Description
A member of the RNA family "mir-1302 microRNA precursor family" from Carlito syrichta, 52 nucleotides long. Pairs were carried over by alignment from the consensus structure, which was predicted with WAR.
RNA sequence: UGUUCAGUACAAGUAUGUCCCAUGCAACAUUUGGGACAUACUUAUACUAUUU
Numbered sequence: 001u002g003u004u005c006a007g008u009a010c011a012a013g014u015a016u017g018u019c020c021c022a023u024g025c026a027a028c029a030u031u032u033g034g035g036a037c038a039u040a041c042u043u044a045u046a047c048u049a050u051u052u
Base pairs, nucleotide, nucleotide: 006048007047008046009045011043012042014040015039016038018036019035020034021033022031

On this family, see Morin et al., Genome Res 2008: "Application of massively parallel sequencing to microRNA profiling and discovery in human embryonic stem cells".